[Rfam]
RNA sequence: CUAAUUAAAGGGCAAAGUCACUGAAAAGUGAUGACGCAAAGCUAUAGGGGCUUCUGUUAUUUUGACAAAGCCAGCCAGCUACCAUC
Number, nucleotide and partner (000 for none) at each position: 001c000002u000003a000004a000005u000006u000007a000008a000009a000010g000011g000012g037013c036014a000015a000016a000017g032018u031019c030020a029021c028022u027023g000024a000025a000026a000027a022028g021029u020030g019031a018032u017033g000034a000035c000036g013037c012038a000039a000040a080041g079042c078043u077044a000045u000046a000047g076048g075049g072050g071051c070052u000053u000054c000055u000056g066057u065058u064059a063060u000061u000062u000063u059064g058065a057066c056067a000068a000069a000070g051071c050072c049073a000074g000075c048076c047077a043078g042079c041080u040081a000082c000083c000084a000085u000086c000
RNA: c-di-GMP-I riboswitch aptamer